Description
mir-172 microRNA precursor family: a 96-nucleotide RNA sequence from Zingiber officinale. From the family's description: mir-172 has been experimentally verified in Arabidopsis thaliana. This family is thought to target mRNAs coding for APETALA2-like transcription factors. The mature sequence is excised from the 3' arm of the hairpin. The organism belongs to Zingiber, within Eukaryota. For this family Rfam cites "Short RNAs can identify new candidate transposable element families in Arabidopsis" (Mette et al., Plant Physiol, 2002). Its family is annotated with miRNA-mediated post-transcriptional gene silencing and RISC complex in the Gene Ontology.
[Rfam]
RNA sequence: AUAUUUGCAGGUGCAGCACCAUCAUGAUUCACAUAGCUCGACAGCUCCUUCUUAGUCAGGAUAUGAGAAUCUUGAUGAUGCUGCACCAGCAACAGG
Numbered sequence: 001a002u003a004u005u006u007g008c009a010g011g012u013g014c015a016g017c018a019c020c021a022u023c024a025u026g027a028u029u030c031a032c033a034u035a036g037c038u039c040g041a042c043a044g045c046u047c048c049u050u051c052u053u054a055g056u057c058a059g060g061a062u063a064u065g066a067g068a069a070u071c072u073u074g075a076u077g078a079u080g081c082u083g084c085a086c087c088a089g090c091a092a093c094a095g096g
Base pairs, nucleotide, nucleotide: 010087011086012085013084014083015082016081017080018079020077021076022075023074024073026071027070028069029068030067032065033064034063035062